[Rfam]
RNA sequence: UCUGGCAGUGAUGCCACACUUGCCCUCACUGAGAACUCUGUUCAAUAAUGAGCCUCCUGCACUUGGAGCAGCUGAGCCAGA
Numbered sequence: 001u002c003u004g005g006c007a008g009u010g011a012u013g014c015c016a017c018a019c020u021u022g023c024c025c026u027c028a029c030u031g032a033g034a035a036c037u038c039u040g041u042u043c044a045a046u047a048a049u050g051a052g053c054c055u056c057c058u059g060c061a062c063u064u065g066g067a068g069c070a071g072c073u074g075a076g077c078c079a080g081a
Stems, first nucleotide, its partner, number of pairs: 001081006

The record is an 81-nucleotide RNA from Hirundo rustica, which matches "Small nucleolar RNA SNORD103/SNORD85" in Rfam. The pairing is the family consensus, mapped onto this sequence. A reference for the family is Huttenhofer et al. (2001), "RNomics: an experimental approach that identifies 201 candidates for novel, small, non-messenger RNAs in mouse", EMBO J. Rfam links the family to the GO terms RNA processing and nucleolus. The family has 41 seed sequences and 1,349 matches in Rfam 15.1. The match comes from Rfam's covariance-model search (67 bits).